The family of this 430-nucleotide part of an RNA from Puccinia triticina is "Eukaryotic large subunit ribosomal RNA".
The family's consensus secondary structure is taken from published work.
[Rfam]
RNA sequence: GGAAGUAGCAAAUAUUCAAGUGAGAACCUUGAAGACUGAAGUGGGGAGGUUCCAUGGUAACAGCAGUUGGACAUGGGUUAGUCGGUCCUAAGAAUAGGGAACCUCCGUUUAAAGAAUGCUCUGUUAGCAUCCACCUAUCGAAAGGGAAUGUAGUUAAAAUUCUACAACUGGGAUACAGAUUUGAACGGCAACGUGAAUGAACUUGGUGACGUCUGCAGGGGCCCCAGGAAGAGUUUUCUUUUCUCCUUAACAAUCUGAAACCCUGGAAGCGAAUUAUUCGGAGAUAGGGUUUAAUGAUUGGUAGAGCUUUACACCUCUGUGAAGUCUGGUGCGUCCUUGAGGAUCCUGAAAACCAAGGGAUUGAAAAAGUCUUGUACCCAGCCGUACCAAUAUCCGCAUCAGGUCCCCAAGGUGAUCAGCCUCUGGUCAA
Numbered sequence: 001g002g003a004a005g006u007a008g009c010a011a012a013u014a015u016u017c018a019a020g021u022g023a024g025a026a027c028c029u030u031g032a033a034g035a036c037u038g039a040a041g042u043g044g045g046g047a048g049g050u051u052c053c054a055u056g057g058u059a060a061c062a063g064c065a066g067u068u069g070g071a072c073a074u075g076g077g078u079u080a081g082u083c084g085g086u087c088c089u090a091a092g093a094a095u096a097g098g099g100a101a102c103c104u105c106c107g108u109u110u111a112a113a114g115a116a117u118g119c120u121c122u123g124u125u126a127g128c129a130u131c132c133a134c135c136u137a138u139c140g141a142a143a144g145g146g147a148a149u150g151u152a153g154u155u156a157a158a159a160u161u162c163u164a165c166a167a168c169u170g171g172g173a174u175a176c177a178g179a180u181u182u183g184a185a186c187g188g189c190a191a192c193g194u195g196a197a198u199g200a201a202c203u204u205g206g207u208g209a210c211g212u213c214u215g216c217a218g219g220g221g222c223c224c225c226a227g228g229a230a231g232a233g234u235u236u237u238c239u240u241u242u243c244u245c246c247u248u249a250a251c252a253a254u255c256u257g258a259a260a261c262c263c264u265g266g267a268a269g270c271g272a273a274u275u276a277u278u279c280g281g282a283g284a285u286a287g288g289g290u291u292u293a294a295u296g297a298u299u300g301g302u303a304g305a306g307c308u309u310u311a312c313a314c315c316u317c318u319g320u321g322a323a324g325u326c327u328g329g330u331g332c333g334u335c336c337u338u339g340a341g342g343a344u345c346c347u348g349a350a351a352a353c354c355a356a357g358g359g360a361u362u363g364a365a366a367a368a369g370u371c372u373u374g375u376a377c378c379c380a381g382c383c384g385u386a387c388c389a390a391u392a393u394c395c396g397c398a399u400c401a402g403g404u405c406c407c408c409a410a411g412g413u414g415a416u417c418a419g420c421c422u423c424u425g426g427u428c429a430a
Base pairs, nucleotide, nucleotide: 015033016032017031018030019029020028034428035427036426037425043408044407045406046405048387052076053075054074055073056072061069062068083384084383085382087145088144092139093138094108095107097106098105099104116130117129118128149166150165151164152163153162169380170379171378172377174376175375176374177373178372179370180369185194186193187192202357203356204355205354206353207352211344212343213342214341216339217338218337219336220335221334222333224329225328226327227247228246230244231243232242251300252299253298254297255296260290261289262288263287264286265285270280271279272278307324308323309322310321311320312319313318394403395402410422411421412420413419